[Rfam]
RNA sequence: ACGACCUUACUUGAACAGGAUCUGUUCUAUAGGCUCGUACCUCUGUUUCCUUGAUUUCUCAAGAGACAGGCCCUUAACCCUGGUUGAUGAACCAUGACCGUGCGGCUAGAGCGUGAUUGACGGCUACGAUCGUCCUCGGACGCAUCCGGUGCUGUAGAGGAUCGUUACUCGGCUCGGUUUCUACCUUGCCGGGGUGGUCGCACGGCGGUCUGACAGGUC
Numbered sequence: 001a002c003g004a005c006c007u008u009a010c011u012u013g014a015a016c017a018g019g020a021u022c023u024g025u026u027c028u029a030u031a032g033g034c035u036c037g038u039a040c041c042u043c044u045g046u047u048u049c050c051u052u053g054a055u056u057u058c059u060c061a062a063g064a065g066a067c068a069g070g071c072c073c074u075u076a077a078c079c080c081u082g083g084u085u086g087a088u089g090a091a092c093c094a095u096g097a098c099c100g101u102g103c104g105g106c107u108a109g110a111g112c113g114u115g116a117u118u119g120a121c122g123g124c125u126a127c128g129a130u131c132g133u134c135c136u137c138g139g140a141c142g143c144a145u146c147c148g149g150u151g152c153u154g155u156a157g158a159g160g161a162u163c164g165u166u167a168c169u170c171g172g173c174u175c176g177g178u179u180u181c182u183a184c185c186u187u188g189c190c191g192g193g194g195u196g197g198u199c200g201c202a203c204g205g206c207g208g209u210c211u212g213a214c215a216g217g218u219c
Stems, first nucleotide, its partner, number of pairs: 001038002003035001005033003013027006043069004048064002051061001053059001079217004098205011110166004121154004127148002129145002131142004169192005176185003
The family of this 219-nucleotide sequence is "Plant small nucleolar RNA U3". Rfam describes the family as follows. Small nucleolar RNAs (snoRNAs) are involved in the processing and modification of rRNA in the nucleolus. There are two main classes of snoRNAs: the box C/D class, and the box H/ACA class. For this family Rfam cites "The uRNA database" (Zwieb, Nucleic Acids Res, 1997).